[Rfam]
RNA sequence: GGGUUUGGGGGAACAUUCAACCUGUCGGUGAGUUUGGCAGCUCAGACAAACCAUCGACGGUUGAGUGGACCCCGAGGCCU
Dot-bracket structure: .(((((.(.....((((((((..(((((((.((((............))))))))))).)))))))).....).))).))

Notes: Shown here is an 80-nucleotide RNA sequence from Peromyscus maniculatus, a member of the family "mir-181 microRNA precursor family". The match comes from Rfam's covariance-model search (64 bits). For this family Rfam cites "New microRNAs from mouse and human" (Lagos-Quintana et al., RNA, 2003). The organism belongs to Peromyscus maniculatus, within Eukaryota.